A member of the RNA family "DUF805b RNA", 37 nucleotides long. The sequence is in the family's curated seed alignment.
RNA sequence: GCGGCGGAAUCCGAAAAGCCACACAAGAGAGUAGGAG
Dot-bracket structure: ..(((....[[[.....))).............]]].
Numbered sequence: 001g002c003g004g005c006g007g008a009a010u011c012c013g014a015a016a017a018g019c020c021a022c023a024c025a026a027g028a029g030a031g032u033a034g035g036a037g
Stems, first nucleotide, its partner, number of pairs: 003020003010036003